[Rfam]
RNA: skipping-rope RNA
RNA sequence: AUCACCGGAGGACGGAACAGGCAGCCGUCACCCAUCGUUCGGAGAUGUGGGGAGUGUCACCCCGCCCGGUUUC
Numbered sequence: 001a002u003c004a005c006c007g008g009a010g011g012a013c014g015g016a017a018c019a020g021g022c023a024g025c026c027g028u029c030a031c032c033c034a035u036c037g038u039u040c041g042g043a044g045a046u047g048u049g050g051g052g053a054g055u056g057u058c059a060c061c062c063c064g065c066c067c068g069g070u071u072u073c
Stems, first nucleotide, its partner, number of pairs: 004070005011029005020058004031042001047065005